[Rfam]
RNA sequence: UAGUGAAGGUCCCAGCAGAGGCUUGAUUUUAAAGUAUGAGAGCUCUCUAACACUACAACCUUCACAUAUGGAUUGUGCCAUGUCGUACAAUGCUUGAAUGUUGCUUGAUAUUUCACAGCAUUUUAUACCAUGGCCACAAAUGC
Numbered sequence: 001u002a003g004u005g006a007a008g009g010u011c012c013c014a015g016c017a018g019a020g021g022c023u024u025g026a027u028u029u030u031a032a033a034g035u036a037u038g039a040g041a042g043c044u045c046u047c048u049a050a051c052a053c054u055a056c057a058a059c060c061u062u063c064a065c066a067u068a069u070g071g072a073u074u075g076u077g078c079c080a081u082g083u084c085g086u087a088c089a090a091u092g093c094u095u096g097a098a099u100g101u102u103g104c105u106u107g108a109u110a111u112u113u114c115a116c117a118g119c120a121u122u123u124u125a126u127a128c129c130a131u132g133g134c135c136a137c138a139a140a141u142g143c
Stems, first nucleotide, its partner, number of pairs: 003065007011020001013018001025047002028040004077134006089122002092119003095115004

This 143-nucleotide RNA from Zea mays belongs to the Rfam family "Small nucleolar RNA snoR145". Rfam classes the family as an H/ACA-box small nucleolar RNA. Pairs were carried over by alignment from the consensus structure, which was predicted with mfold. Rfam links the family to the GO terms nucleolus and RNA processing. Rfam 15.1 lists 286 matches to the family in 194 species.